RNA sequence: AAAACAAAGUAGAAGUUUCCGCUUCUCACCUUAUGGCUUUAAGCUUAUUAGGUUAAUAGAACAAAAAACAUUUAGGGAUAUUUAUGUUUUUUUCUAUUUAUGAGAAAGCGGAGUUCAAAGAACUCGCUUUUUUUAUGUGUU
Number, nucleotide and partner (000 for none) at each position: 001a000002a000003a000004a000005c000006a000007a000008a000009g000010u000011a026012g025013a024014a023015g022016u021017u000018u000019c000020c000021g016022c015023u014024u013025c012026u011027c000028a053029c052030c051031u000032u000033a048034u047035g046036g044037c043038u000039u000040u000041a000042a000043g037044c036045u000046u035047a034048u033049u000050a000051g030052g029053u028054u000055a000056a000057u000058a000059g000060a000061a000062c000063a000064a000065a000066a000067a000068a000069c000070a000071u000072u000073u000074a000075g000076g000077g000078a000079u000080a000081u000082u000083u000084a000085u000086g000087u000088u000089u000090u000091u000092u000093u000094c000095u000096a000097u000098u000099u000100a000101u000102g000103a000104g000105a000106a000107a128108g127109c126110g125111g124112a000113g123114u122115u121116c120117a000118a000119a000120g116121a115122a114123c113124u111125c110126g109127c108128u107129u000130u000131u000132u000133u000134u000135a000136u000137g000138u000139g000140u000141u000
RNA: Ribosomal protein L20 leader
Organism: Senegalia massiliensis